Rfam assigns this 348-nucleotide RNA from Roseicitreum antarcticum to the family "Alphaproteobacteria transfer-messenger RNA". Pairs were carried over by alignment from the consensus structure, which is taken from published work. Bacterial tmRNA, also known as 10Sa RNA or SsrA, is named for its dual tRNA and mRNA-like properties. Its role is to liberate the mRNA from a stalled ribosome. To accomplish this part of the tmRNA is used as a reading frame that ends in a translation stop signal.

[Rfam]
RNA sequence: CCUCUUUUCAAACCGCCCAUGCAUCCCUAUAUCUGAAGUGUCCUUCGGGACUAUGGACAUAAACGCGCUCGUAAUACGCGGAUCGGACCCGGGGGCGGUACCCGGCGGCUCCACCAAACACCCUUCAUUUGGGGGUCAUGGGGCCGAAACAGGAUCGACGAACGUCUAAAGGGGUUAGCUUUGUCUCGGUGAGGUACCACCGUUACCGGUCCGAAAAGUACAAUUGCAAAUGACAAUCGUGCUCCGGUUGCAGUUGCUGCGUAAGCAGUAACAAGACCGAAAACUAAGCCCUUGCGCCUAGCAGCGUAAGGCGGGGUCCGCAGGCACCUGGCAACAGAAGCCUGCACU
Numbered sequence: 001c002c003u004c005u006u007u008u009c010a011a012a013c014c015g016c017c018c019a020u021g022c023a024u025c026c027c028u029a030u031a032u033c034u035g036a037a038g039u040g041u042c043c044u045u046c047g048g049g050a051c052u053a054u055g056g057a058c059a060u061a062a063a064c065g066c067g068c069u070c071g072u073a074a075u076a077c078g079c080g081g082a083u084c085g086g087a088c089c090c091g092g093g094g095g096c097g098g099u100a101c102c103c104g105g106c107g108g109c110u111c112c113a114c115c116a117a118a119c120a121c122c123c124u125u126c127a128u129u130u131g132g133g134g135g136u137c138a139u140g141g142g143g144c145c146g147a148a149a150c151a152g153g154a155u156c157g158a159c160g161a162a163c164g165u166c167u168a169a170a171g172g173g174g175u176u177a178g179c180u181u182u183g184u185c186u187c188g189g190u191g192a193g194g195u196a197c198c199a200c201c202g203u204u205a206c207c208g209g210u211c212c213g214a215a216a217a218g219u220a221c222a223a224u225u226g227c228a229a230a231u232g233a234c235a236a237u238c239g240u241g242c243u244c245c246g247g248u249u250g251c252a253g254u255u256g257c258u259g260c261g262u263a264a265g266c267a268g269u270a271a272c273a274a275g276a277c278c279g280a281a282a283a284c285u286a287a288g289c290c291c292u293u294g295c296g297c298c299u300a301g302c303a304g305c306g307u308a309a310g311g312c313g314g315g316g317u318c319c320g321c322a323g324g325c326a327c328c329u330g331g332c333a334a335c336a337g338a339a340g341c342c343u344g345c346a347c348u
Base pairs, nucleotide, nucleotide: 040051041050042049043048055186056185057184058183059182065179066178067175068174069173070172079164080163083161084160085159089105090104091103092102093101106146107145108144109143110142111141112140187202188201189200190199193212194211196210197209198208314329315328316327317326320345321344322343323342324341325340